[Rfam]
RNA: mir-29 microRNA precursor family
Organism: Gallus gallus
RNA sequence: GGAAGCUGGUUUCACAUGGUGGCUUAGAUUUUCCCACUUUGUAUCUAGCACCAUUUGAAAUCAGUGUUCU
Dot-bracket structure: ((((((((((((((.((((((...((((...............)))).)))))).)))))))))).))))